A member of the RNA family "Small nucleolar RNA SNORD63" from Saimiri boliviensis, 63 nucleotides long. Lineage of the source: Eukaryota > Deuterostomia > Chordata > Amniota > Saimiri boliviensis. A search with the family's covariance model found it, with a score of 49 bits. The base pairs follow the family's consensus structure, which was predicted with PFOLD. On this family, see Galardi et al., Mol Cell Biol 2002: "Purified box C/D snoRNPs are able to reproduce site-specific 2'-O-methylation of target RNA in vitro". The family's RNA type in Rfam is C/D-box small nucleolar RNA. Rfam links the family to the GO terms nucleolus and RNA processing. snoRNA U63 is found in both humans and mice.
[Rfam]
RNA sequence: GUGCGGUGAUUUAUUUGUCAAUACAUCAUUCUGAAGAAAUGUGAUUUCCUGUGACUGAGUACA
Numbered sequence: 001g002u003g004c005g006g007u008g009a010u011u012u013a014u015u016u017g018u019c020a021a022u023a024c025a026u027c028a029u030u031c032u033g034a035a036g037a038a039a040u041g042u043g044a045u046u047u048c049c050u051g052u053g054a055c056u057g058a059g060u061a062c063a
Stems, first nucleotide, its partner, number of pairs: 001062004